Rfam assigns this 209-nucleotide sequence from Isosphaera pallida to the family "SAM riboswitch aptamer (S box leader)".
Taxonomically the source falls in Isosphaera pallida (Bacteria, Planctomycetia, Isosphaerales, Isosphaeraceae).
It scores 65 bits against the family's covariance model.
The SAM riboswitch is found upstream of a number of genes which code for proteins involved in methionine or cysteine biosynthesis in Gram-positive bacteria.

RNA sequence: UUCUUAUCCAGAGUGGCUGAGGGACUGGCCCUGCGACGCCACAGCAUCCGAUCCGGCGUGGUUGAUCAAGAGGGAUGAUGGAUCGUCAUUACGGUUCGCCCUUGCGAUUGGUGGUUCUUAGUGCCCACCAACCCGCCUUGAUGCCGGUGCUAACUCCUGCCCCUCCUCAAUGGCUUCGUGCUGGUUUGGGGAGAAGGGAGAGAUAAGAG
Numbered sequence: 001u002u003c004u005u006a007u008c009c010a011g012a013g014u015g016g017c018u019g020a021g022g023g024a025c026u027g028g029c030c031c032u033g034c035g036a037c038g039c040c041a042c043a044g045c046a047u048c049c050g051a052u053c054c055g056g057c058g059u060g061g062u063u064g065a066u067c068a069a070g071a072g073g074g075a076u077g078a079u080g081g082a083u084c085g086u087c088a089u090u091a092c093g094g095u096u097c098g099c100c101c102u103u104g105c106g107a108u109u110g111g112u113g114g115u116u117c118u119u120a121g122u123g124c125c126c127a128c129c130a131a132c133c134c135g136c137c138u139u140g141a142u143g144c145c146g147g148u149g150c151u152a153a154c155u156c157c158u159g160c161c162c163c164u165c166c167u168c169a170a171u172g173g174c175u176u177c178g179u180g181c182u183g184g185u186u187u188g189g190g191g192a193g194a195a196g197g198g199a200g201a202g203a204u205a206a207g208a209g
Stems, first nucleotide, its partner, number of pairs: 001209008013042005021031003025159001027157002043151004048147002051142003155201001160198003164194002